[Rfam]
Source information: Rfam assigns this 133-nucleotide sequence from Digitaria exilis to the family "Small nucleolar RNA snoR77". Gene Ontology terms of the family: RNA processing and nucleolus. A reference for the family is Marker et al. (2002), "Experimental RNomics: identification of 140 candidates for small non-messenger RNAs in the plant Arabidopsis thaliana", Curr Biol. Taxonomically the source falls in Digitaria (Eukaryota, Tracheophyta, Spermatophyta, Paniceae). The match comes from Rfam's covariance-model search (79 bits).
RNA sequence: AGGCAGCCCCUUUGUCCGAUGUCAAUGGCAAUGGAGGUGCUGCGUUUCUCGGGAAUAUUUUUAUCUUCAGAUCAGCUGAGGGGGGAGACCAACUUUCCUCGUUGAGGCUGGUCUAGUAAGUCUUAAGAACAUA
Numbered sequence: 001a002g003g004c005a006g007c008c009c010c011u012u013u014g015u016c017c018g019a020u021g022u023c024a025a026u027g028g029c030a031a032u033g034g035a036g037g038u039g040c041u042g043c044g045u046u047u048c049u050c051g052g053g054a055a056u057a058u059u060u061u062u063a064u065c066u067u068c069a070g071a072u073c074a075g076c077u078g079a080g081g082g083g084g085g086a087g088a089c090c091a092a093c094u095u096u097c098c099u100c101g102u103u104g105a106g107g108c109u110g111g112u113c114u115a116g117u118a119a120g121u122c123u124u125a126a127g128a129a130c131a132u133a
Stems, first nucleotide, its partner, number of pairs: 002041004007037002009034002012031005059127003064119001069114005075108003080100007